RNA: Bacillaceae-1 RNA
Organism: Bacillus sp. HNG
RNA sequence: AAUUAAGGAACUCAGACUAAUAACGCCACAUCCUGUGGCAACAUCUGAGUGACCCACUUCGUGUGGG
Numbered sequence: 001a002a003u004u005a006a007g008g009a010a011c012u013c014a015g016a017c018u019a020a021u022a023a024c025g026c027c028a029c030a031u032c033c034u035g036u037g038g039c040a041a042c043a044u045c046u047g048a049g050u051g052a053c054c055c056a057c058u059u060c061g062u063g064u065g066g067g
Base pairs, nucleotide, nucleotide: 011049012048013047014046015045016044025039026038027037028036029035053067054066055065056064057063